Overview:
The family of this 79-nucleotide RNA sequence is "c-di-GMP-I-GGC riboswitch aptamer". Rfam links the family to the GO term cyclic-di-GMP binding. The family's consensus secondary structure is taken from published work. The family has 40 seed sequences and 1,298 matches in Rfam 15.1. The sequence is in the family's curated seed alignment. On this family, see Smith et al., Biochemistry 2010: "Structural and biochemical determinants of ligand binding by the c-di-GMP riboswitch ".
RNA sequence: CCUGACAAAGCUAACCUUUCCGUGUGAAGGGGAUAGGAAGUAUUGGGUUUUAUGAAGGUAGAUGGCCGAACUGCCGAAA
Number, nucleotide and partner (000 for none) at each position: 001c000002c000003u076004g075005a000006c000007a000008a000009a000010g000011c036012u035013a000014a000015c000016c031017u030018u029019u028020c000021c026022g000023u000024g000025u000026g021027a000028a019029g018030g017031g016032g000033a000034u065035a012036g011037g000038a000039a072040g071041u070042a000043u000044u068045g067046g066047g063048u062049u061050u000051u000052a000053u000054g000055a000056a000057g000058g000059u000060a000061g049062a048063u047064g000065g034066c046067c045068g044069a000070a041071c040072u039073g000074c000075c004076g003077a000078a000079a000